[Rfam]
A member of the RNA family "Burkholderia sRNA 16 (Bc_KC_sr1)" from Paraburkholderia xenovorans, 81 nucleotides long. About the family: Identified by RNA-seq, RACE and Northern blot. Strongly expressed in biofilm. Also know as Bc_KC_sr1. Upregulated in response to iron ion depletion.

RNA sequence: GUACGUGGCUGGCGAAGCCGCCGCGUCACCAUUCUCCUCUUGUCGUUGUUGCUCCGGGGUUAAUAACCCCGGUUUUUUUUG
Number, nucleotide and partner (000 for none) at each position: 001g029002u028003a026004c025005g024006u023007g022008g000009c000010u020011g019012g018013c017014g000015a000016a000017g013018c012019c011020g010021c000022c007023g006024c005025g004026u003027c000028a002029c001030c000031a000032u000033u000034c000035u000036c000037c000038u000039c000040u000041u000042g000043u000044c000045g000046u000047u000048g000049u000050u000051g000052c000053u000054c072055c071056g070057g069058g068059g067060u066061u000062a000063a000064u000065a000066a060067c059068c058069c057070c056071g055072g054073u000074u000075u000076u000077u000078u000079u000080u000081g000